[Rfam]
RNA sequence: CUUCUCUCCGUGAUGAAGCCAAUACGGAUGUAAAUGGGCACAAGCUCAAGCGUCCGAGAGCGCAAAACCACCAUGUGGAUGCUUCCGUUGCCUUCCUUCUGAUUCUUGUU
Number, nucleotide and partner (000 for none) at each position: 001c000002u000003u000004c108005u000006c000007u000008c000009c000010g000011u000012g000013a000014u000015g000016a000017a000018g000019c000020c000021a000022a000023u000024a000025c087026g086027g085028a084029u000030g000031u000032a000033a000034a000035u000036g000037g000038g000039c000040a000041c000042a000043a000044g000045c000046u000047c000048a000049a000050g000051c000052g000053u000054c000055c000056g000057a000058g000059a000060g000061c000062g000063c000064a000065a000066a000067a000068c000069c000070a000071c000072c000073a000074u000075g000076u000077g000078g000079a000080u000081g000082c000083u000084u028085c027086c026087g025088u000089u000090g000091c000092c000093u000094u000095c000096c000097u000098u000099c000100u000101g000102a000103u000104u000105c000106u000107u000108g004109u000110u000
Small nucleolar RNA Z13/snr52: a 110-nucleotide RNA from Sanghuangporus baumii. Lineage of the source: Eukaryota > Opisthokonta > Agaricomycotina > Agaricomycetes > Sanghuangporus. Its family is annotated with nucleolus and RNA processing in the Gene Ontology. Pairs were carried over by alignment from the consensus structure, which was predicted with PFOLD. It is annotated as a C/D-box small nucleolar RNA.